[Rfam]
RNA sequence: AGGCGAUGAAGAAACAAAACAUUUCUCGAUGCUGAUAUAACACUAAUUAUUAUGUUAUACUUUUUUGAUGACCUAUUUGUGCGUGUCUGAGCCUC
Numbered sequence: 001a002g003g004c005g006a007u008g009a010a011g012a013a014a015c016a017a018a019a020c021a022u023u024u025c026u027c028g029a030u031g032c033u034g035a036u037a038u039a040a041c042a043c044u045a046a047u048u049a050u051u052a053u054g055u056u057a058u059a060c061u062u063u064u065u066u067g068a069u070g071a072c073c074u075a076u077u078u079g080u081g082c083g084u085g086u087c088u089g090a091g092c093c094u095c
Base pairs, nucleotide, nucleotide: 001094002093003092004091
RNA: small nucleolar RNA snoR126